The family of this 30-nucleotide RNA from Anaerobacterium chartisolvens is "CRISPR RNA direct repeat element". Rfam links the family to the GO term defense response. The match comes from Rfam's covariance-model search (44 bits). The family's consensus secondary structure was predicted with WAR.

RNA sequence: AUUUCAAUACAUCCCAUGUUAAGUUUCAAC
Numbered sequence: 001a002u003u004u005c006a007a008u009a010c011a012u013c014c015c016a017u018g019u020u021a022a023g024u025u026u027c028a029a030c
Stems, first nucleotide, its partner, number of pairs: 009019004